Shown here is a 109-nucleotide RNA from Castanea mollissima, a member of the family "MIR403 microRNA precursor family". The source organism's lineage runs through Eukaryota, Streptophyta, Spermatophyta, Magnoliopsida and Castanea. A reference for the family is Mica et al. (2009), "High throughput approaches reveal splicing of primary microRNA transcripts and tissue specific expression of mature microRNAs in Vitis vinifera", BMC Genomics.
[Rfam]
RNA sequence: ACCUAUCUCAAGUUUGUGCGUGAAUCAGACCCCAUCACAGCCGUUCAUUUCUAAUCAAUCCCAUACCAUCCGAUGGUGUUAGAUUCACGCACAAACUCGUGAUUUGUCU
Numbered sequence: 001a002c003c004u005a006u007c008u009c010a011a012g013u014u015u016g017u018g019c020g021u022g023a024a025u026c027a028g029a030c031c032c033c034a035u036c037a038c039a040g041c042c043g044u045u046c047a048u049u050u051c052u053a054a055u056c057a058a059u060c061c062c063a064u065a066c067c068a069u070c071c072g073a074u075g076g077u078g079u080u081a082g083a084u085u086c087a088c089g090c091a092c093a094a095a096c097u098c099g100u101g102a103u104u105u106g107u108c109u
Stems, first nucleotide, its partner, number of pairs: 001107002005103003011097016028080003032076002045065001